[Rfam]
Rfam assigns this 91-nucleotide sequence from Musa balbisiana to the family "Small nucleolar RNA Z162".
Pairs were carried over by alignment from the consensus structure, which was predicted with PFOLD.
Rfam links the family to the GO terms nucleolus and RNA processing.

RNA sequence: AUAGGCACUAUGAGGAAAUGCAUUCUUUCAAUCUGCAAGAUCAACUGAUCUAUGAGCAGAAUAAUUUAGUCCUUUUCAUUCUGAGUGCCUG
Dot-bracket structure: ...(((((.(((((.........................(((....))).........................))))).....)))))..
Rfam 15.1 lists 146 matches to the family in 75 species. By type it is a C/D-box small nucleolar RNA. The match comes from Rfam's covariance-model search (48 bits). The organism belongs to Musa, within Eukaryota.